Record summary
A member of the RNA family "Selenocysteine insertion sequence 1" from Heterocephalus glaber, 65 nucleotides long. The base pairs follow the family's consensus structure, which is taken from published work. Lineage of the source: Eukaryota > Teleostomi > Rodentia > Bathyergidae > Heterocephalus. The family's RNA type in Rfam is cis-regulatory element.

RNA sequence: GUCACUGCAUGAUCUGCUCUGGAUAAACCCCUUCUAGGCCAGCCAGGGUGGUGAUGAUCUGUGAC
Numbered sequence: 001g002u003c004a005c006u007g008c009a010u011g012a013u014c015u016g017c018u019c020u021g022g023a024u025a026a027a028c029c030c031c032u033u034c035u036a037g038g039c040c041a042g043c044c045a046g047g048g049u050g051g052u053g054a055u056g057a058u059c060u061g062u063g064a065c
Stems, first nucleotide, its partner, number of pairs: 001065005014051009030038002